Rfam assigns this 85-nucleotide RNA from Salvelinus namaycush to the family "mir-301 microRNA precursor family". Rfam 15.1 lists 1,415 matches to the family in 640 species. Rfam links the family to the GO terms miRNA-mediated post-transcriptional gene silencing and RISC complex. The literature on the family includes a 2003 paper in Dev Cell by Houbaviy et al., "Embryonic stem cell-specific MicroRNAs". The family's consensus secondary structure was predicted with WAR. A search with the family's covariance model found it, with a score of 74 bits.

[Rfam]
RNA sequence: AGAGGUCAGCUGCUUUGACGAUGUUGCACUACUGUUCCAUCGGCUGAAGCAGUGCAAUAGUAUUGUCAUAGCAUCCGGCCUCCGC
Numbered sequence: 001a002g003a004g005g006u007c008a009g010c011u012g013c014u015u016u017g018a019c020g021a022u023g024u025u026g027c028a029c030u031a032c033u034g035u036u037c038c039a040u041c042g043g044c045u046g047a048a049g050c051a052g053u054g055c056a057a058u059a060g061u062a063u064u065g066u067c068a069u070a071g072c073a074u075c076c077g078g079c080c081u082c083c084g085c
Base pairs, nucleotide, nucleotide: 002082003081004080007077009075011073012072013071014070016068017067018066019065023058024057025056026055027054028053029052030051034041